This 82-nucleotide RNA from Rhodoferax sediminis belongs to the Rfam family "SucA RNA motif". The literature on the family includes a 2007 paper in Nucleic Acids Res by Weinberg et al., "Identification of 22 candidate structured RNAs in bacteria using the CMfinder comparative genomics pipeline". Lineage of the source: Bacteria > Pseudomonadati > Pseudomonadota > Betaproteobacteria > Rhodoferax. It scores 80 bits against the family's covariance model.

[Rfam]
RNA sequence: UCGCAUCCGCCAAUCGGUCUAGCCGUGUCGCGGGAGGUAAUUUAACCAGCUUAUGUUUCCCGGAGGGAAACGGAGGUCAGCG
Numbered sequence: 001u002c003g004c005a006u007c008c009g010c011c012a013a014u015c016g017g018u019c020u021a022g023c024c025g026u027g028u029c030g031c032g033g034g035a036g037g038u039a040a041u042u043u044a045a046c047c048a049g050c051u052u053a054u055g056u057u058u059c060c061c062g063g064a065g066g067g068a069a070a071c072g073g074a075g076g077u078c079a080g081c082g
Base pairs, nucleotide, nucleotide: 002082003081004080006034007033008032009031010030015025016024017023018022036047037046038045049077050076051075055071056070057069058068059067060066061065